[Rfam]
RNA sequence: AAGCUAUGGUUAGGACAUUGCAAGAGCAUGUCCUUGAACCCCUCCAUGCACUUCCACAAUGACUCACCAUCAUUUUGGAAAAAACAUGAAAUUACUUUUCUAAACGC
Numbered sequence: 001a002a003g004c005u006a007u008g009g010u011u012a013g014g015a016c017a018u019u020g021c022a023a024g025a026g027c028a029u030g031u032c033c034u035u036g037a038a039c040c041c042c043u044c045c046a047u048g049c050a051c052u053u054c055c056a057c058a059a060u061g062a063c064u065c066a067c068c069a070u071c072a073u074u075u076u077g078g079a080a081a082a083a084a085c086a087u088g089a090a091a092u093u094a095c096u097u098u099u100c101u102a103a104a105c106g107c
Stems, first nucleotide, its partner, number of pairs: 003105001005102002058074002061071001

The family of this 107-nucleotide RNA from Coptis chinensis is "Plant small nucleolar RNA R71". Pairs were carried over by alignment from the consensus structure, which was predicted with PFOLD.